[Rfam]
RNA sequence: GCUAUUUUAACAGAAAACCACACACUUGCCGAGACAACAAGCGGGGUGCCACAAAAUAAAGCGUGGUUCGCUUGUUGGGUAAGUGGAGGCUUAAC
Numbered sequence: 001g002c003u004a005u006u007u008u009a010a011c012a013g014a015a016a017a018c019c020a021c022a023c024a025c026u027u028g029c030c031g032a033g034a035c036a037a038c039a040a041g042c043g044g045g046g047u048g049c050c051a052c053a054a055a056a057u058a059a060a061g062c063g064u065g066g067u068u069c070g071c072u073u074g075u076u077g078g079g080u081a082a083g084u085g086g087a088g089g090c091u092u093a094a095c
Base pairs, nucleotide, nucleotide: 023085024084025083026082027081028080029079030078035077036076037075038074039073040072041071042070043069048067049066050065051064052063

Rfam assigns this 95-nucleotide sequence from Hydrogenovibrio sp. SC-1 to the family "t44 RNA". NCBI's taxonomy places the organism under Bacteria, Pseudomonadota, Gammaproteobacteria, Thiotrichales, Hydrogenovibrio. A search with the family's covariance model found it, with a score of 69 bits. By type it is a small RNA.